[Rfam]
About this RNA
Rfam assigns this 74-nucleotide RNA sequence from Ornithorhynchus anatinus to the family "mir-1421 microRNA precursor family". Pairs were carried over by alignment from the consensus structure, which was predicted with RNAalifold. Lineage of the source: Eukaryota > Chordata > Gnathostomata > Dipnotetrapodomorpha > Ornithorhynchus.
RNA sequence: UGGUGUGAGGUGGUCACAUGAGUUGCAGUGCGAUAUGGGAAUAUGCUGCAUCCCGUGUGACCUCCCUACACGGU
Numbered sequence: 001u002g003g004u005g006u007g008a009g010g011u012g013g014u015c016a017c018a019u020g021a022g023u024u025g026c027a028g029u030g031c032g033a034u035a036u037g038g039g040a041a042u043a044u045g046c047u048g049c050a051u052c053c054c055g056u057g058u059g060a061c062c063u064c065c066c067u068a069c070a071c072g073g074u
Stems, first nucleotide, its partner, number of pairs: 003071005009065002012062009024050004